[Rfam]
Source information:
A member of the RNA family "U12 minor spliceosomal RNA" from Drymodes brunneopygia, 149 nucleotides long. It scores 127 bits against the family's covariance model. Pairs were carried over by alignment from the consensus structure. NCBI's taxonomy places the organism under Eukaryota, Craniata, Saurischia, Australaves, Drymodes. The family's RNA type in Rfam is spliceosomal small nuclear RNA.
RNA sequence: UUGCCUUAAACUUACGAGUAAGGAAAAGAACGAUCCGGGGUGAUGCCCGGGUCCUCACUCCAGAUGUGAGAAGACUAUUUGCGCGGGUAUAGGUUGCCCCUGGGUGCCCCGCUUACUUCGCGGGAUGCCCGGUUGUCGUAAUCUGCCCG
Numbered sequence: 001u002u003g004c005c006u007u008a009a010a011c012u013u014a015c016g017a018g019u020a021a022g023g024a025a026a027a028g029a030a031c032g033a034u035c036c037g038g039g040g041u042g043a044u045g046c047c048c049g050g051g052u053c054c055u056c057a058c059u060c061c062a063g064a065u066g067u068g069a070g071a072a073g074a075c076u077a078u079u080u081g082c083g084c085g086g087g088u089a090u091a092g093g094u095u096g097c098c099c100c101u102g103g104g105u106g107c108c109c110c111g112c113u114u115a116c117u118u119c120g121c122g123g124g125a126u127g128c129c130c131g132g133u134u135g136u137c138g139u140a141a142u143c144u145g146c147c148c149g
Base pairs, nucleotide, nucleotide: 004023005022006021007020008019032053033052034051035050036049037048038047039046054070055069056068057067058066084149085148086147087146088145091144092143093142094141095140096139097138100132102130103129104128105127106126108124109123110122111121112120